[Rfam]
RNA sequence: AGUGUGCCUAUGAUGAAAUGUUUCGACCUGUGUCAGGAUUUGAACCACUGGGCAUGUAAAUCUCAGUAGGUUUUUUUUUGCUGAGGCAUAUU
Numbered sequence: 001a002g003u004g005u006g007c008c009u010a011u012g013a014u015g016a017a018a019u020g021u022u023u024c025g026a027c028c029u030g031u032g033u034c035a036g037g038a039u040u041u042g043a044a045c046c047a048c049u050g051g052g053c054a055u056g057u058a059a060a061u062c063u064c065a066g067u068a069g070g071u072u073u074u075u076u077u078u079u080g081c082u083g084a085g086g087c088a089u090a091u092u
Stems, first nucleotide, its partner, number of pairs: 003090006
This 92-nucleotide RNA from Oryza sativa belongs to the Rfam family "Small nucleolar RNA Z182". Its family is annotated with nucleolus and RNA processing in the Gene Ontology. The sequence is in the family's curated seed alignment. The base pairs follow the family's consensus structure. Rfam classes the family as a C/D-box small nucleolar RNA. NCBI's taxonomy places the organism under Eukaryota, Spermatophyta, Magnoliopsida, Oryza, Oryza sativa.